[Rfam]
Source information: A member of the RNA family "Eukaryotic large subunit ribosomal RNA" from Plasmodiophora brassicae, 499 nucleotides of a longer RNA. A search with the family's covariance model found it, with a score of 2826 bits. Pairs were carried over by alignment from the consensus structure, which is taken from published work. Lineage of the source: Eukaryota > Sar > Phytomyxea > Plasmodiophorida > Plasmodiophora.
RNA sequence: CCCUCCGAAGUUUCCCUCAGGAUAGCUGGAAUUCACAGACGAGUUUUAUCAGGUAAAGCUAAUGAUUAGAGGCCUUUGGGGCAAAAUGCUCUGAACCUAUUCUCAAACUUUAAAUGGGUAAGAAAUGGGGCGUUGCUUCGGUGAACCUCCAUGGAAAUCGCGAAUUCUUAGUGGGCCAUUUUUGGUAAGCAGAACUGGCGAUGCGGGAUGAACCGGACGUCCGGUUAAGGUGCCAAAGUGCUCGCUCAUGUAGAUCCCAUGAAAGGUGUUGGUUCAUCCAGACAGCAGGACGGUGGCCAUGGAAGUCGGAAUCCGCUAAGGAGUGUGUAACAACUCACCUGCCGAAUGAACUAGCCCUGAAAAUGGAUGGCGCUCAAGCGGGCCACCGAUACCGGACCAUUUCUGCGAGUGCCUAUGCAGAAAUGAGUAGGAGGGCGUGGAGGUCAUUAGCGACGAAGCUCUUGGCGUGAGCCUGAGUGAAGCGGCCUCUAGUGCAGAU
Numbered sequence: 001c002c003c004u005c006c007g008a009a010g011u012u013u014c015c016c017u018c019a020g021g022a023u024a025g026c027u028g029g030a031a032u033u034c035a036c037a038g039a040c041g042a043g044u045u046u047u048a049u050c051a052g053g054u055a056a057a058g059c060u061a062a063u064g065a066u067u068a069g070a071g072g073c074c075u076u077u078g079g080g081g082c083a084a085a086a087u088g089c090u091c092u093g094a095a096c097c098u099a100u101u102c103u104c105a106a107a108c109u110u111u112a113a114a115u116g117g118g119u120a121a122g123a124a125a126u127g128g129g130g131c132g133u134u135g136c137u138u139c140g141g142u143g144a145a146c147c148u149c150c151a152u153g154g155a156a157a158u159c160g161c162g163a164a165u166u167c168u169u170a171g172u173g174g175g176c177c178a179u180u181u182u183u184g185g186u187a188a189g190c191a192g193a194a195c196u197g198g199c200g201a202u203g204c205g206g207g208a209u210g211a212a213c214c215g216g217a218c219g220u221c222c223g224g225u226u227a228a229g230g231u232g233c234c235a236a237a238g239u240g241c242u243c244g245c246u247c248a249u250g251u252a253g254a255u256c257c258c259a260u261g262a263a264a265g266g267u268g269u270u271g272g273u274u275c276a277u278c279c280a281g282a283c284a285g286c287a288g289g290a291c292g293g294u295g296g297c298c299a300u301g302g303a304a305g306u307c308g309g310a311a312u313c314c315g316c317u318a319a320g321g322a323g324u325g326u327g328u329a330a331c332a333a334c335u336c337a338c339c340u341g342c343c344g345a346a347u348g349a350a351c352u353a354g355c356c357c358u359g360a361a362a363a364u365g366g367a368u369g370g371c372g373c374u375c376a377a378g379c380g381g382g383c384c385a386c387c388g389a390u391a392c393c394g395g396a397c398c399a400u401u402u403c404u405g406c407g408a409g410u411g412c413c414u415a416u417g418c419a420g421a422a423a424u425g426a427g428u429a430g431g432a433g434g435g436c437g438u439g440g441a442g443g444u445c446a447u448u449a450g451c452g453a454c455g456a457a458g459c460u461c462u463u464g465g466c467g468u469g470a471g472c473c474u475g476a477g478u479g480a481a482g483c484g485g486c487c488u489c490u491a492g493u494g495c496a497g498a499u
Base pairs, nucleotide, nucleotide: 001435002434003433004432005431006430011024013022014021015020028168029167030166031165032164033163044123045122046121047120048119049118050117056111057109058108063105064104065103068100070098071097072096075095076094077093078092079091080090082088125152126151127150128149129148130147132146133145134144175199176198177197178196180194181193182192183191184190204215205214206213219397220396221395222394223393225391229387230386231385238384240383243380244379245378264358265357266356268355269354270353271352272351273350274349275348276347277346285342286341287340288339289338291315292314293313297309298308316320321336325334326333398425399424400423401422402421403420404419405418406417436494438491439490440489441488442487443486444485445484450483451482458478459477464473465472466471